[Rfam]
RNA sequence: AUUCAAGACCCGGGGAGCUGGAAUUUGGCCGGCUGAGAGUGCAUCCCCAAGAUGCUAACCCGUAUACCUGAUCUGGAUAAUGCCAGCGUAGGAACGAGAAAUGUUUGGUAA
Number, nucleotide and partner (000 for none) at each position: 001a000002u000003u000004c000005a000006a000007g000008a000009c096010c000011c062012g061013g060014g059015g000016a056017g033018c032019u031020g030021g029022a000023a000024u000025u000026u000027g000028g000029c021030c020031g019032g018033c017034u000035g000036a000037g000038a000039g000040u000041g055042c054043a053044u052045c000046c000047c000048c000049a000050a000051g000052a044053u043054g042055c041056u016057a000058a000059c014060c013061c012062g011063u000064a000065u000066a000067c092068c091069u090070g089071a000072u000073c086074u085075g084076g083077a000078u000079a000080a000081u000082g000083c076084c075085a074086g073087c000088g000089u070090a069091g068092g067093a000094a000095c000096g009097a000098g000099a000100a000101a000102u000103g000104u000105u000106u000107g000108g000109u000110a000111a000